RNA sequence: GUUUGAUGAUGACUUGCCAUGCUAAUACCGAAAAAUUCCACCAGGGGACGUUUGUCACUGGUGUAAGAUUUUUGUGAGUUAAAACUUGCUUCUCAAAUGAGACCUGAAAACA
Numbered sequence: 001g002u003u004u005g006a007u008g009a010u011g012a013c014u015u016g017c018c019a020u021g022c023u024a025a026u027a028c029c030g031a032a033a034a035a036u037u038c039c040a041c042c043a044g045g046g047g048a049c050g051u052u053u054g055u056c057a058c059u060g061g062u063g064u065a066a067g068a069u070u071u072u073u074g075u076g077a078g079u080u081a082a083a084a085c086u087u088g089c090u091u092c093u094c095a096a097a098u099g100a101g102a103c104c105u106g107a108a109a110a111c112a
Base pairs, nucleotide, nucleotide: 001111002110003109004108041061042060043059044058047056
Shown here is a 112-nucleotide RNA sequence from Owenia fusiformis, a member of the family "Small nucleolar RNA U6-53/MBII-28". A search with the family's covariance model found it, with a score of 55 bits.